[Rfam]
RNA sequence: CGCUUUUUUCGCCCAGGCGGGGCUCGACCGCCGACUGAAGUCCUGAAGGCGUUUGUCGAUCAGCAUCGCGACACGUUCGGGGUCGGGCCGAUCUGCAAAGUCUUGCAGAUUGCCACG
Numbered sequence: 001c002g003c004u005u006u007u008u009u010c011g012c013c014c015a016g017g018c019g020g021g022g023c024u025c026g027a028c029c030g031c032c033g034a035c036u037g038a039a040g041u042c043c044u045g046a047a048g049g050c051g052u053u054u055g056u057c058g059a060u061c062a063g064c065a066u067c068g069c070g071a072c073a074c075g076u077u078c079g080g081g082g083u084c085g086g087g088c089c090g091a092u093c094u095g096c097a098a099a100g101u102c103u104u105g106c107a108g109a110u111u112g113c114c115a116c117g
Base pairs, nucleotide, nucleotide: 016032017031018030019029020028078117079116081114082113089112090111092109093108094107095106096105097104098103